[Rfam]
RNA: small nucleolar RNA snoR117
RNA sequence: AGCCAACGAUGUAUAAAAUUGUCCCUACCAUCUGAGAUUUUCUUCUCUGAUGCAUUCAACAAAUUUGUUUUCUGAGGCUU
Numbered sequence: 001a002g003c004c005a006a007c008g009a010u011g012u013a014u015a016a017a018a019u020u021g022u023c024c025c026u027a028c029c030a031u032c033u034g035a036g037a038u039u040u041u042c043u044u045c046u047c048u049g050a051u052g053c054a055u056u057c058a059a060c061a062a063a064u065u066u067g068u069u070u071u072c073u074g075a076g077g078c079u080u
Stems, first nucleotide, its partner, number of pairs: 001079004
Dot-bracket structure: ((((.......................................................................)))).